[Rfam]
RNA sequence: UUGCUAUGAUGACAUCUUAGGACACCUUUGAAAUGAAGAUGAAACUAAUCUUUAAAUCUGAGCAGC
Number, nucleotide and partner (000 for none) at each position: 001u065002u064003g063004c062005u000006a000007u000008g000009a000010u000011g000012a000013c000014a000015u000016c000017u000018u000019a000020g000021g000022a000023c000024a000025c000026c000027u000028u000029u000030g000031a000032a000033a000034u000035g000036a000037a000038g000039a000040u000041g000042a000043a000044a000045c000046u000047a000048a000049u000050c000051u000052u000053u000054a000055a000056a000057u000058c000059u000060g000061a000062g004063c003064a002065g001066c000
RNA: Small nucleolar RNA SNORD58
Organism: Etheostoma spectabile